[Rfam]
RNA sequence: GUUGAGGGGAAUGUUGUCUGGUUCGAAGUCAUUCAUAUGAAUCUUAAAUGUCUUCUGAAUGAUUUCGGACCAGGCUUCAUUCCCCCCAAC
Numbered sequence: 001g002u003u004g005a006g007g008g009g010a011a012u013g014u015u016g017u018c019u020g021g022u023u024c025g026a027a028g029u030c031a032u033u034c035a036u037a038u039g040a041a042u043c044u045u046a047a048a049u050g051u052c053u054u055c056u057g058a059a060u061g062a063u064u065u066c067g068g069a070c071c072a073g074g075c076u077u078c079a080u081u082c083c084c085c086c087c088a089a090c
Stems, first nucleotide, its partner, number of pairs: 001090004006085008016075006024067003

This 90-nucleotide RNA sequence from Theobroma cacao belongs to the Rfam family "mir-166 microRNA precursor family". A search with the family's covariance model found it, with a score of 85 bits. A reference for the family is Reinhart et al. (2002), "MicroRNAs in plants", Genes Dev. Lineage of the source: Eukaryota > Euphyllophyta > Spermatophyta > Gunneridae > Theobroma. Rfam links the family to the GO terms RISC complex and miRNA-mediated post-transcriptional gene silencing. Rfam describes the family as follows. This family represents the plant microRNA (miRNA) precursor mir-166.